Rfam assigns this 97-nucleotide RNA sequence from Strigamia maritima to the family "Vault RNA". The base pairs follow the family's consensus structure, which is taken from published work. Rfam 15.1 lists 2,873 matches to the family in 431 species. By type it is a non-coding RNA gene. The source organism's lineage runs through Eukaryota, Opisthokonta, Mandibulata, Myriapoda and Strigamia. It scores 39 bits against the family's covariance model.

[Rfam]
RNA sequence: AGGUGGGCGUAGCUACGUGGAUACUUCGAAUAUCAGAAUUCCGUAUGUCCUUGGUUCAAACUCUAGGGCUAAUCCACUUGCGCUGUCCUGCCUUUUG
Numbered sequence: 001a002g003g004u005g006g007g008c009g010u011a012g013c014u015a016c017g018u019g020g021a022u023a024c025u026u027c028g029a030a031u032a033u034c035a036g037a038a039u040u041c042c043g044u045a046u047g048u049c050c051u052u053g054g055u056u057c058a059a060a061c062u063c064u065a066g067g068g069c070u071a072a073u074c075c076a077c078u079u080g081c082g083c084u085g086u087c088c089u090g091c092c093u094u095u096u097g
Stems, first nucleotide, its partner, number of pairs: 002092006012081002015078001017077004025060002028057002